About this RNA: The record is a 73-nucleotide RNA sequence from Intrasporangium oryzae, which matches "tRNA" in Rfam.
[Rfam]
RNA sequence: AGGGCAAUAGCUCAAUUGGUAGAGCUCUGGUCUCCAAAACCAGCGGUUGGGGGUUCGAGUCCCUCUUGCCCUG
Numbered sequence: 001a002g003g004g005c006a007a008u009a010g011c012u013c014a015a016u017u018g019g020u021a022g023a024g025c026u027c028u029g030g031u032c033u034c035c036a037a038a039a040c041c042a043g044c045g046g047u048u049g050g051g052g053g054u055u056c057g058a059g060u061c062c063c064u065c066u067u068g069c070c071c072u073g
Stems, first nucleotide, its partner, number of pairs: 001072007010025004027043005049065005
The organism belongs to Intrasporangium oryzae, within Bacteria. Rfam describes the family as follows. Transfer RNA (tRNA) molecules are approximately 80 nucleotides in length. The family's consensus secondary structure is taken from published work.